Shown here is a 74-nucleotide sequence from Nipponia nippon, a member of the family "mir-10 microRNA precursor family". Rfam 15.1 lists 3,853 matches to the family in 853 species. The base pairs follow the family's consensus structure, which was predicted with PFOLD. A reference for the family is Lee and Ambros (2001), "An extensive class of small RNAs in Caenorhabditis elegans", Science.
RNA sequence: UAUAUGUACCCUGUAGACUCGAAUUUGUGUGAGCGUCUCCCAGUCACAAAUUCGUCUCUAGGGGAAUAUAUGGG
Numbered sequence: 001u002a003u004a005u006g007u008a009c010c011c012u013g014u015a016g017a018c019u020c021g022a023a024u025u026u027g028u029g030u031g032a033g034c035g036u037c038u039c040c041c042a043g044u045c046a047c048a049a050a051u052u053c054g055u056c057u058c059u060a061g062g063g064g065a066a067u068a069u070a071u072g073g074g
Stems, first nucleotide, its partner, number of pairs: 001072006009064003015059003020054010